mraW RNA: a 105-nucleotide sequence from Cutibacterium granulosum. Lineage of the source: Bacteria > Actinomycetota > Actinomycetes > Propionibacteriaceae > Cutibacterium granulosum. The family's RNA type in Rfam is cis-regulatory element. The match comes from Rfam's covariance-model search (52 bits).
[Rfam]
RNA sequence: UUCGAGUCGCGGGCAGUGGCUCCGGGCUGACGGACUGGUUCUGACGCAUCUUCCCCUGCGUCAGAGUCACUGCAGGCCGGAACCUCCGCUCACGACUCACAUGGC
Numbered sequence: 001u002u003c004g005a006g007u008c009g010c011g012g013g014c015a016g017u018g019g020c021u022c023c024g025g026g027c028u029g030a031c032g033g034a035c036u037g038g039u040u041c042u043g044a045c046g047c048a049u050c051u052u053c054c055c056c057u058g059c060g061u062c063a064g065a066g067u068c069a070c071u072g073c074a075g076g077c078c079g080g081a082a083c084c085u086c087c088g089c090u091c092a093c094g095a096c097u098c099a100c101a102u103g104g105c
Stems, first nucleotide, its partner, number of pairs: 011091004016086001018084002021081005027075003032070001036069012